[Rfam]
RNA sequence: AGCUUGAUGAUGAAUGUCUCUUGUGAUUGCUUGCUUGUCUUGUAAGCAAAGUGAUCUGUCAUUUCACCGACACUGAAAGCU
Numbered sequence: 001a002g003c004u005u006g007a008u009g010a011u012g013a014a015u016g017u018c019u020c021u022u023g024u025g026a027u028u029g030c031u032u033g034c035u036u037g038u039c040u041u042g043u044a045a046g047c048a049a050a051g052u053g054a055u056c057u058g059u060c061a062u063u064u065c066a067c068c069g070a071c072a073c074u075g076a077a078a079g080c081u
Base pairs, nucleotide, nucleotide: 001081002080003079004078005077
The record is an 81-nucleotide sequence from Rhodinocichla rosea, which matches "Small nucleolar RNA SNORD102" in Rfam. Rfam links the family to the GO terms nucleolus and RNA processing. Rfam classes the family as a C/D-box small nucleolar RNA. The family has 11 seed sequences and 443 matches in Rfam 15.1.